[Rfam]
RNA sequence: GCGGCGUUGGUCCAGUGGCUAAGACACGUGCUUGCCAUGCGCGUAACCCGGGUUCAAAUCCCGGACGCCGCA
Numbered sequence: 001g002c003g004g005c006g007u008u009g010g011u012c013c014a015g016u017g018g019c020u021a022a023g024a025c026a027c028g029u030g031c032u033u034g035c036c037a038u039g040c041g042c043g044u045a046a047c048c049c050g051g052g053u054u055c056a057a058a059u060c061c062c063g064g065a066c067g068c069c070g071c072a
Stems, first nucleotide, its partner, number of pairs: 001071007010025003027043005048064005

Description:
Shown here is a 72-nucleotide RNA from Candidatus Nanosalina sp. J07AB43, a member of the family "tRNA". It is annotated as a transfer RNA. The base pairs follow the family's consensus structure, which is taken from published work. The match comes from Rfam's covariance-model search (58 bits). The source organism's lineage runs through Archaea, Methanobacteriati, Methanobacteriota, Candidatus Nanohaloarchaea and Candidatus Nanosalina. From the family's description: Transfer RNA (tRNA) molecules are approximately 80 nucleotides in length.